The family of this 113-nucleotide RNA sequence from Microcebus murinus is "Y RNA". By type it is a non-coding RNA gene. The base pairs follow the family's consensus structure, which is taken from published work. Taxonomically the source falls in Microcebus (Eukaryota, Euteleostomi, Strepsirrhini, Lemuriformes).
[Rfam]
RNA sequence: GGCUGGUCCGAACGUAGUAAGUUAUCUCACUUGAUUGUUCACAGUCAGUUACGGAUUGAAUUCCUGUUCUACUACUUUCCCCCCUUCCCACUACUGCACUUGACUAGUCUUUA
Number, nucleotide and partner (000 for none) at each position: 001g109002g108003c107004u106005g105006g104007u103008c102009c000010g101011a100012a000013c000014g097015u096016a092017g091018u090019a000020a000021g087022u000023u000024a000025u000026c000027u000028c000029a000030c000031u000032u000033g000034a000035u000036u000037g000038u000039u000040c000041a000042c000043a077044g076045u000046c000047a073048g072049u000050u000051a000052c000053g000054g000055a000056u000057u000058g000059a000060a000061u000062u000063c000064c000065u000066g000067u000068u000069c000070u000071a000072c048073u047074a000075c000076u044077u043078u000079c000080c000081c000082c000083c000084c000085u000086u000087c021088c000089c000090a018091c017092u016093a000094c000095u000096g015097c014098a000099c000100u011101u010102g008103a007104c006105u005106a004107g003108u002109c001110u000111u000112u000113a000